[Rfam]
RNA: mraW RNA
RNA sequence: GCAUGCCCGUGCACCGUGGUCUCUGUCCGAACCGACCCUGGCGUACUUCCCCAACGCCAGGUUCGCAACCUCGGACGGAGGCCUCGGUGCACGGGCGGCACUGC
Numbered sequence: 001g002c003a004u005g006c007c008c009g010u011g012c013a014c015c016g017u018g019g020u021c022u023c024u025g026u027c028c029g030a031a032c033c034g035a036c037c038c039u040g041g042c043g044u045a046c047u048u049c050c051c052c053a054a055c056g057c058c059a060g061g062u063u064c065g066c067a068a069c070c071u072c073g074g075a076c077g078g079a080g081g082c083c084u085c086g087g088u089g090c091a092c093g094g095g096c097g098g099c100a101c102u103g104c
Stems, first nucleotide, its partner, number of pairs: 010091007018083002021080010033065003037061008
Dot-bracket structure: .........(((((((.((.((((((((((..(((.((((((((.........)))))))).))).....)))))))))).)).))))))).............